RNA sequence: AUGCCAUGGUGAGGACACUUCACUAGCAUCCCUUUAAAUCUUUCCCAAGUUUCUUGCAAGGUCUCCAUCGGCUGCUGUUUGUACUACAAUAUUUCAUCAAUCUGCCU
Numbered sequence: 001a002u003g004c005c006a007u008g009g010u011g012a013g014g015a016c017a018c019u020u021c022a023c024u025a026g027c028a029u030c031c032c033u034u035u036a037a038a039u040c041u042u043u044c045c046c047a048a049g050u051u052u053c054u055u056g057c058a059a060g061g062u063c064u065c066c067a068u069c070g071g072c073u074g075c076u077g078u079u080u081g082u083a084c085u086a087c088a089a090u091a092u093u094u095c096a097u098c099a100a101u102c103u104g105c106c107u
Stems, first nucleotide, its partner, number of pairs: 001107001003105002006101001057074002
A member of the RNA family "Plant small nucleolar RNA R71" from Nicotiana tabacum, 107 nucleotides long. Rfam links the family to the GO terms RNA processing and nucleolus. The literature on the family includes a 2003 paper in Trends Plant Sci by Brown et al., "Plant snoRNAs: functional evolution and new modes of gene expression". A search with the family's covariance model found it, with a score of 40 bits. The family has 25 seed sequences and 278,378 matches in Rfam 15.1. Rfam classes the family as a C/D-box small nucleolar RNA. The base pairs follow the family's consensus structure, which was predicted with PFOLD.